[Rfam]
RNA sequence: GUGUUUUUCAUGGUAUUAGAUUUAAGGUUAAGAAGAUUAUUCGUCGUGACGACGGGUAAUUUUUUUUUA
Numbered sequence: 001g002u003g004u005u006u007u008u009c010a011u012g013g014u015a016u017u018a019g020a021u022u023u024a025a026g027g028u029u030a031a032g033a034a035g036a037u038u039a040u041u042c043g044u045c046g047u048g049a050c051g052a053c054g055g056g057u058a059a060u061u062u063u064u065u066u067u068u069a
Stems, first nucleotide, its partner, number of pairs: 039057007
Dot-bracket structure: ......................................(((((((.....)))))))............
The family of this 69-nucleotide sequence from bacterium J10(2018) is "Bacteroidetes FopS (family of paralogous sRNAs)". Gene Ontology term of the family: sRNA-mediated gene silencing. The literature on the family includes a 2025 paper in Nat Commun by Ruttiger et al., "The global RNA-binding protein RbpB is a regulator of polysaccharide utilization in Bacteroides thetaiotaomicron". About the family: The RNA-binding protein RbpB and BTncRNA_FopS sRNA are involved in the post-transcription regulation of polysaccharide utilisation loci (PUL). FopS sRNAs function as post-transcriptional repressors by binding to the vicinity of the start codon of the first mRNA of target PUL polycistrons, typically corresponding to the cognate SusC homolog, impeding translation of the respective glycan transporter. The family's consensus secondary structure is taken from published work.